[Rfam]
RNA: U7 small nuclear RNA
RNA sequence: GAGCAUUAUAGCUCUUUUCAAAUUUGUCUAGUAGAUUUUCCAGUUUUUACCAGAGAACUGU
Numbered sequence: 001g002a003g004c005a006u007u008a009u010a011g012c013u014c015u016u017u018u019c020a021a022a023u024u025u026g027u028c029u030a031g032u033a034g035a036u037u038u039u040c041c042a043g044u045u046u047u048u049a050c051c052a053g054a055g056a057a058c059u060g061u
Stems, first nucleotide, its partner, number of pairs: 035061002037056004043050002